[Rfam]
RNA: miR-430 microRNA precursor family
RNA sequence: CAGAUCACCUCAAACAGAGCCACUUGUGAUUCUCCUUUUCAUAAGUGCUUCUCUUUGGGGUUGUCUUA
Numbered sequence: 001c002a003g004a005u006c007a008c009c010u011c012a013a014a015c016a017g018a019g020c021c022a023c024u025u026g027u028g029a030u031u032c033u034c035c036u037u038u039u040c041a042u043a044a045g046u047g048c049u050u051c052u053c054u055u056u057g058g059g060g061u062u063g064u065c066u067u068a
Stems, first nucleotide, its partner, number of pairs: 004064002007061005014055001016052004021047004026042003